A member of the RNA family "mir-6 microRNA precursor family" from Scaptodrosophila lebanonensis, 78 nucleotides long.
RNA sequence: AAAGAAAGAGAACGUCUGCUGCUGAUGUAGUUGCGUAUGCAAUCAUAUUUUAUAUCACAGUGGCUGUUCUUUUUUGUU
Numbered sequence: 001a002a003a004g005a006a007a008g009a010g011a012a013c014g015u016c017u018g019c020u021g022c023u024g025a026u027g028u029a030g031u032u033g034c035g036u037a038u039g040c041a042a043u044c045a046u047a048u049u050u051u052a053u054a055u056c057a058c059a060g061u062g063g064c065u066g067u068u069c070u071u072u073u074u075u076g077u078u
Base pairs, nucleotide, nucleotide: 004075005074007072008071009070010069011068012067013066016063017062018061019060020059021058023057024056026054027053028052029051
The match comes from Rfam's covariance-model search (76 bits). The family's consensus secondary structure was predicted with PFOLD. A reference for the family is Ambros (2001), "microRNAs: tiny regulators with great potential", Cell. Rfam's curators write: This family consists of the microRNA (miRNA) precursor mir-6 which appears to be Drosophila specific. Animal miRNAs are transcribed as ~70nt precursors and subsequently processed by the Dicer enzyme to give a ~22nt product. In this case the mature sequence comes from the 3' arm of the precursor. The extents of the hairpin precursors are not generally known and are estimated based on hairpin prediction. Its family is annotated with RISC complex and miRNA-mediated post-transcriptional gene silencing in the Gene Ontology.